[Rfam]
RNA sequence: GGAGCCAUAGGGAGGGAUGCCAAUCCAGCCUUAGGAAAAGAAACCUGUCACGGGAGUCUUGGAGAUUGGUGACCGUCCUAAUGACUUA
Numbered sequence: 001g002g003a004g005c006c007a008u009a010g011g012g013a014g015g016g017a018u019g020c021c022a023a024u025c026c027a028g029c030c031u032u033a034g035g036a037a038a039a040g041a042a043a044c045c046u047g048u049c050a051c052g053g054g055a056g057u058c059u060u061g062g063a064g065a066u067u068g069g070u071g072a073c074c075g076u077c078c079u080a081a082u083g084a085c086u087u088a
Stems, first nucleotide, its partner, number of pairs: 002087003006083003010079004015074002018071008029062002038060004044054004
RNA: mir-9014 microRNA precursor family
Organism: Equus caballus